Record summary
Rfam assigns this 46-nucleotide sequence from Chloracidobacterium thermophilum to the family "Acido-Lenti-1 RNA". NCBI's taxonomy places the organism under Bacteria, Pseudomonadati, Blastocatellia, Chloracidobacterium, Chloracidobacterium thermophilum. Pairs were carried over by alignment from the consensus structure, which is taken from published work.
[Rfam]
RNA sequence: CCGUGGGUUGAAACCCACGGCUAAGCUCAACUGUCGCUACGCGACA
Dot-bracket structure: ((((((((....))))))))............(((((...))))).
Numbered sequence: 001c002c003g004u005g006g007g008u009u010g011a012a013a014c015c016c017a018c019g020g021c022u023a024a025g026c027u028c029a030a031c032u033g034u035c036g037c038u039a040c041g042c043g044a045c046a
Stems, first nucleotide, its partner, number of pairs: 001020008033045005